[Rfam]
RNA sequence: GUGCAGAGCGUCUAGGGUUCCGGCCGCCGUGGCGGCGCUGGUCCGAGAGACGCUCCCGGUUCGCGAUCGGACCGGGACACGGCGGGACAAAACCCCGGGAGGU
Numbered sequence: 001g002u003g004c005a006g007a008g009c010g011u012c013u014a015g016g017g018u019u020c021c022g023g024c025c026g027c028c029g030u031g032g033c034g035g036c037g038c039u040g041g042u043c044c045g046a047g048a049g050a051c052g053c054u055c056c057c058g059g060u061u062c063g064c065g066a067u068c069g070g071a072c073c074g075g076g077a078c079a080c081g082g083c084g085g086g087a088c089a090a091a092a093c094c095c096c097g098g099g100a101g102g103u
Stems, first nucleotide, its partner, number of pairs: 007054006015044002020041002022038001023036005055076008078098001080101001084096003

A member of the RNA family "Guanidine-I riboswitch aptamer" from Oharaeibacter diazotrophicus, 103 nucleotides long. It scores 91 bits against the family's covariance model. From the family's description: This family represents a conserved RNA structure found upstream of the ykkC and yxkD genes in Bacillus subtilis and related genes in other bacteria. Pairs were carried over by alignment from the consensus structure.